[Rfam]
RNA sequence: GCGCCAGACACGGGGUGCCCGGAAGGGCUGAGAUUAAACCCGAGAACCUGAUCGAGUUCGGACUCGCGGAGGAAUGUCGGUAAACGACGCA
Numbered sequence: 001g002c003g004c005c006a007g008a009c010a011c012g013g014g015g016u017g018c019c020c021g022g023a024a025g026g027g028c029u030g031a032g033a034u035u036a037a038a039c040c041c042g043a044g045a046a047c048c049u050g051a052u053c054g055a056g057u058u059c060g061g062a063c064u065c066g067c068g069g070a071g072g073a074a075u076g077u078c079g080g081u082a083a084a085c086g087a088c089g090c091a
Stems, first nucleotide, its partner, number of pairs: 007078004011042004016036001017028004047072003053066004